[Rfam]
RNA sequence: AAGAAGCACAGAGCUUAGCUGAUUGGUGAACAGUGAUUGAACUCUUUGUUCACAGUGGCUAAGUUCUGCACUCAGG
Number, nucleotide and partner (000 for none) at each position: 001a000002a000003g000004a000005a000006g000007c000008a000009c000010a000011g066012a065013g064014c063015u062016u061017a060018g059019c058020u057021g000022a000023u000024u000025g000026g053027u052028g051029a050030a049031c048032a047033g000034u000035g000036a000037u000038u000039g000040a000041a000042c000043u000044c000045u000046u000047u032048g031049u030050u029051c028052a027053c026054a000055g000056u000057g020058g019059c018060u017061a016062a015063g014064u013065u012066c011067u000068g000069c000070a000071c000072u000073c000074a000075g000076g000